[Rfam]
RNA: mir-3070 microRNA precursor family
Organism: Mus musculus
RNA sequence: GUGCUGAGUGAGGCUGAGCCCCUGACCUUGAACCUGGGAUCCUAUCCAUGAUCUCCUGGUGCUACCGUCAGGGGUAGAUUCCUUGUCAU
Numbered sequence: 001g002u003g004c005u006g007a008g009u010g011a012g013g014c015u016g017a018g019c020c021c022c023u024g025a026c027c028u029u030g031a032a033c034c035u036g037g038g039a040u041c042c043u044a045u046c047c048a049u050g051a052u053c054u055c056c057u058g059g060u061g062c063u064a065c066c067g068u069c070a071g072g073g074g075u076a077g078a079u080u081c082c083u084u085g086u087c088a089u
Stems, first nucleotide, its partner, number of pairs: 005088003010084004018075009032060003036055006